[Rfam]
RNA sequence: UGAUGGUAGGGUGAUGGGGCUCACCCAAACUUCCCAGAAGGGAUAAUGGCUCCUGCGAAUGG
Numbered sequence: 001u002g003a004u005g006g007u008a009g010g011g012u013g014a015u016g017g018g019g020c021u022c023a024c025c026c027a028a029a030c031u032u033c034c035c036a037g038a039a040g041g042g043a044u045a046a047u048g049g050c051u052c053c054u055g056c057g058a059a060u061g062g
Stems, first nucleotide, its partner, number of pairs: 010025004016053006032043004
RNA: Fluoride riboswitch aptamer (crcB RNA motif)
Organism: Alicyclobacillus tolerans